RNA: Small nucleolar RNA F1/F2/snoR5a
Organism: Gossypium aridum
RNA sequence: UCUUGCCCUUGGUAUCUGAUAUCCAGCUUUUAUCUAUUUGUAGCUGGAUGUUUCGUUUUUACGGGCAGAUACAAAGUCGUUGAACAGGUCUUGCGACACAGUUAGCUUUUAUUUUUCAUAAGCUUUCUGUUACUAAAUCCCUGGUCACAUUU
Numbered sequence: 001u002c003u004u005g006c007c008c009u010u011g012g013u014a015u016c017u018g019a020u021a022u023c024c025a026g027c028u029u030u031u032a033u034c035u036a037u038u039u040g041u042a043g044c045u046g047g048a049u050g051u052u053u054c055g056u057u058u059u060u061a062c063g064g065g066c067a068g069a070u071a072c073a074a075a076g077u078c079g080u081u082g083a084a085c086a087g088g089u090c091u092u093g094c095g096a097c098a099c100a101g102u103u104a105g106c107u108u109u110u111a112u113u114u115u116u117c118a119u120a121a122g123c124u125u126u127c128u129g130u131u132a133c134u135a136a137a138u139c140c141c142u143g144g145u146c147a148c149a150u151u152u
Stems, first nucleotide, its partner, number of pairs: 004067005018052011032039001083145001085143003098130004104124004